[Rfam]
RNA sequence: GGCGAUAAACGGACUUCGAAAUAAGCCUAUCGGACCCGGGGGCGGUACCCGGCGCCUCCACCCAAGCCCGCCGCGCGACACGGUCUGCCGGCGGGUUUCGGCGGGGGCGAAAUAGGAUCGACGAGGGUGUAAAGGUCGUUCUUUUGCUCGGCAUGGUUCCGCCGUUAUCGGGCCGUCUCAAUAGUUGCAAAUGACAACUAUGCUAUGGACAACGCUGUCGCCGCGUAA
Numbered sequence: 001g002g003c004g005a006u007a008a009a010c011g012g013a014c015u016u017c018g019a020a021a022u023a024a025g026c027c028u029a030u031c032g033g034a035c036c037c038g039g040g041g042g043c044g045g046u047a048c049c050c051g052g053c054g055c056c057u058c059c060a061c062c063c064a065a066g067c068c069c070g071c072c073g074c075g076c077g078a079c080a081c082g083g084u085c086u087g088c089c090g091g092c093g094g095g096u097u098u099c100g101g102c103g104g105g106g107g108c109g110a111a112a113u114a115g116g117a118u119c120g121a122c123g124a125g126g127g128u129g130u131a132a133a134g135g136u137c138g139u140u141c142u143u144u145u146g147c148u149c150g151g152c153a154u155g156g157u158u159c160c161g162c163c164g165u166u167a168u169c170g171g172g173c174c175g176u177c178u179c180a181a182u183a184g185u186u187g188c189a190a191a192u193g194a195c196a197a198c199u200a201u202g203c204u205a206u207g208g209a210c211a212a213c214g215c216u217g218u219c220g221c222c223g224c225g226u227a228a
Stems, first nucleotide, its partner, number of pairs: 001148005014138001017135001026127003030124003036052005053109007149164004
RNA: permuted transfer-messenger RNA